[Rfam]
RNA sequence: CCAAAGGCUCUUUUCAGAGCCACCUCACAUGGCACAAAAAGACCUGU
Numbered sequence: 001c002c003a004a005a006g007g008c009u010c011u012u013u014u015c016a017g018a019g020c021c022a023c024c025u026c027a028c029a030u031g032g033c034a035c036a037a038a039a040a041g042a043c044c045u046g047u
Base pairs, nucleotide, nucleotide: 006021007020008019009018010017011016

Histone 3' UTR stem-loop: a 47-nucleotide RNA sequence from Odobenus rosmarus. The base pairs follow the family's consensus structure, which is taken from published work. NCBI's taxonomy places the organism under Eukaryota, Bilateria, Pinnipedia, Odobenidae, Odobenus rosmarus. Rfam links the family to the GO term mRNA 3'-end processing by stem-loop binding and cleavage. A search with the family's covariance model found it, with a score of 41 bits.